Record summary: The family of this 72-nucleotide sequence from Blomia tropicalis is "tRNA". Transfer RNA (tRNA) molecules are approximately 80 nucleotides in length. Rfam classes the family as a transfer RNA. Pairs were carried over by alignment from the consensus structure, which is taken from published work. Rfam links the family to the GO term triplet codon-amino acid adaptor activity. Taxonomically the source falls in Blomia (Eukaryota, Acariformes, Sarcoptiformes, Astigmata).
RNA sequence: GGCUCAGUGGUCUAGUCGUAUGAUUCUCGCUUCGGGUGCGAGAGGUCCCGGGUUCAAUUCCCGGCUGAGCCC
Numbered sequence: 001g002g003c004u005c006a007g008u009g010g011u012c013u014a015g016u017c018g019u020a021u022g023a024u025u026c027u028c029g030c031u032u033c034g035g036g037u038g039c040g041a042g043a044g045g046u047c048c049c050g051g052g053u054u055c056a057a058u059u060c061c062c063g064g065c066u067g068a069g070c071c072c
Stems, first nucleotide, its partner, number of pairs: 001071007010024003026042005048064005